[Rfam]
RNA sequence: ACAUUUGCAUCUGCCGGAUGGCUCACCUAUAUAGGGUGUGCCCGCAAGGGCUAUGGCGAUAAACUGUCAUUGUAAUAAACCCAUCGGACCCGGGGGCAGUACCCGGCGUCUCCACCAUCUCCCCUCUCUAAGAGGAGCCAAUGGGGACGAAACAGGAUCGACGAGGGCGUAAAGAGUGUGCUUUCGCUCGGCAUGGUACCGCCGUUAUCGGGCUAAAACUUAUAGUUGCUAAUGACAACAAUAAGGCUCCGGUCGCUCUCGCCGCGUAAGCGGUGCUAGCACUGGGAAUUAAAGUCCUCCACUCCUAGCCGGGUGGCAGGCGGGGUUCGCAGGCACCUGGCAACAGAAGCCUGCACU
Dot-bracket structure: .......................................((((....))))...(((((......((((((........(((.(((...(((((.......)))))(((((((.............................)))))))............)))))).......)))).))..)))))((((.[[[..[[)))).....]].]]]...........................................................................................................[[[[..((((((]]]]..........))))))...
This 357-nucleotide sequence from Devosia crocina belongs to the Rfam family "Alphaproteobacteria transfer-messenger RNA". A reference for the family is Zwieb et al. (2003), "tmRDB (tmRNA database)", Nucleic Acids Res. The family's RNA type in Rfam is non-coding RNA gene. Rfam's curators write: Bacterial tmRNA, also known as 10Sa RNA or SsrA, is named for its dual tRNA and mRNA-like properties. Its role is to liberate the mRNA from a stalled ribosome. To accomplish this part of the tmRNA is used as a reading frame that ends in a translation stop signal. The broken mRNA is replaced in the ribosome by the tmRNA and translation of the tmRNA leads to addition of a proteolysis tag to the incomplete protein enabling recognition by a protease. Recently a number of permuted tmRNA genes have been found encoded in two parts. tmRNAs have been identified in eubacteria and some chloroplasts but are absent from archaeal and eukaryote nuclear genomes.